[Rfam]
RNA: Small nucleolar RNA SNORA28
Organism: Erinaceus europaeus
RNA sequence: AAGCAAAACUUUAUGGCAGAUGUCCAAAACUAGUCAUCUGGCAUGAUUUGAGUUUUCUACAGCGAGAAAGUCUCACAGAUUCCAGCAUUCUCUCCCCUCUAUGAGACAUGUUAUUAUAUAGACAUAAACAUC
Numbered sequence: 001a002a003g004c005a006a007a008a009c010u011u012u013a014u015g016g017c018a019g020a021u022g023u024c025c026a027a028a029a030c031u032a033g034u035c036a037u038c039u040g041g042c043a044u045g046a047u048u049u050g051a052g053u054u055u056u057c058u059a060c061a062g063c064g065a066g067a068a069a070g071u072c073u074c075a076c077a078g079a080u081u082c083c084a085g086c087a088u089u090c091u092c093u094c095c096c097c098u099c100u101a102u103g104a105g106a107c108a109u110g111u112u113a114u115u116a117u118a119u120a121g122a123c124a125u126a127a128a129c130a131u132c
Stems, first nucleotide, its partner, number of pairs: 009052003012045004017040006068125001070123004079117002084112003091106004